Rfam assigns this 392-nucleotide RNA sequence from Citricoccus muralis to the family "Bacterial RNase P class A".
A search with the family's covariance model found it, with a score of 304 bits.
The organism belongs to Citricoccus, within Bacteria.
Rfam classes the family as a ribozyme.
[Rfam]
RNA sequence: CAGGCUGGCGGACGGCCGCAGGGUGCCGGUUCUCGGCGCCGUGAGGAACGUCCGGGCUCCACAGGGCAGGAUGGUGGGUAACGCCCACUCGGGGUGACCCGCAGGAAAGUGCCACAGAAAACAGACCGCCGGCUCACUUGGUGCAUGCAUCAGGAGGGCAGGUCAGGGUGAAACGGUGGUGUAAGAGACCACCAGCGAUCCGGGUGACCGGAUCGGCUCGGUAAACCCCAUCCGGAGCAAGGCCGAACAGGAUGUGUUCGAGGGCUGCCCGCCCGAGCAUCCGGGUUGGCCGCUCGAGCCCGCCGGCAACGGCGGGCCUAGAUGGAUGGCCGUCGCUGGGAAGCGGGUGACCGCUCCCGGUACAGAACCCGGCGUACAAGCCAGCCUGUCCC
Numbered sequence: 001c002a003g004g005c006u007g008g009c010g011g012a013c014g015g016c017c018g019c020a021g022g023g024u025g026c027c028g029g030u031u032c033u034c035g036g037c038g039c040c041g042u043g044a045g046g047a048a049c050g051u052c053c054g055g056g057c058u059c060c061a062c063a064g065g066g067c068a069g070g071a072u073g074g075u076g077g078g079u080a081a082c083g084c085c086c087a088c089u090c091g092g093g094g095u096g097a098c099c100c101g102c103a104g105g106a107a108a109g110u111g112c113c114a115c116a117g118a119a120a121a122c123a124g125a126c127c128g129c130c131g132g133c134u135c136a137c138u139u140g141g142u143g144c145a146u147g148c149a150u151c152a153g154g155a156g157g158g159c160a161g162g163u164c165a166g167g168g169u170g171a172a173a174c175g176g177u178g179g180u181g182u183a184a185g186a187g188a189c190c191a192c193c194a195g196c197g198a199u200c201c202g203g204g205u206g207a208c209c210g211g212a213u214c215g216g217c218u219c220g221g222u223a224a225a226c227c228c229c230a231u232c233c234g235g236a237g238c239a240a241g242g243c244c245g246a247a248c249a250g251g252a253u254g255u256g257u258u259c260g261a262g263g264g265c266u267g268c269c270c271g272c273c274c275g276a277g278c279a280u281c282c283g284g285g286u287u288g289g290c291c292g293c294u295c296g297a298g299c300c301c302g303c304c305g306g307c308a309a310c311g312g313c314g315g316g317c318c319u320a321g322a323u324g325g326a327u328g329g330c331c332g333u334c335g336c337u338g339g340g341a342a343g344c345g346g347g348u349g350a351c352c353g354c355u356c357c358c359g360g361u362a363c364a365g366a367a368c369c370c371g372g373c374g375u376a377c378a379a380g381c382c383a384g385c386c387u388g389u390c391c392c
Stems, first nucleotide, its partner, number of pairs: 001388009010377001011334007019043002022040006048375003052372005057237004064270004069233005074088005089103001090101004104228002109226002111222003126167002128163003132159004175193006195217001196215008241291004250282006262274004298317008